[Rfam]
RNA sequence: CUGAAGGCCGCGUCCGGGUCAAUUGCGGACUGCAACACCCGAUCUCCCUCAACGUGCCACCGAAAAUGGUGGUCGAUGAGGGGGAGCGCGUGACCGUCAG
Number, nucleotide and partner (000 for none) at each position: 001c100002u099003g098004a097005a000006g000007g000008c000009c090010g089011c088012g087013u086014c000015c041016g040017g039018g038019u000020c000021a000022a000023u035024u034025g033026c032027g031028g000029a000030c000031u027032g026033c025034a024035a023036c000037a000038c018039c017040c016041g015042a000043u085044c084045u083046c082047c081048c080049u079050c078051a077052a000053c075054g000055u000056g000057c000058c000059a000060c000061c000062g000063a000064a000065a000066a000067u000068g000069g000070u000071g000072g000073u000074c000075g053076a000077u051078g050079a049080g048081g047082g046083g045084g044085a043086g013087c012088g011089c010090g009091u000092g000093a000094c000095c000096g000097u004098c003099a002100g001
RNA: L4-Archaeoglobi ribosomal protein leades